RNA sequence: CCCAGAGGUAUUGAUGGGUGACAAAUCGAUGUGUUCUCCACAUUGAACCAUUCAAAUUGCACCAACCUACGCGGAUGCGUAGGUUUUUUUU
Numbered sequence: 001c002c003c004a005g006a007g008g009u010a011u012u013g014a015u016g017g018g019u020g021a022c023a024a025a026u027c028g029a030u031g032u033g034u035u036c037u038c039c040a041c042a043u044u045g046a047a048c049c050a051u052u053c054a055a056a057u058u059g060c061a062c063c064a065a066c067c068u069a070c071g072c073g074g075a076u077g078c079g080u081a082g083g084u085u086u087u088u089u090u091u
Stems, first nucleotide, its partner, number of pairs: 017063004028044006065084008
The family of this 91-nucleotide RNA from Dickeya dadantii is "OmrA-B family". The organism belongs to Dickeya dadantii, within Bacteria.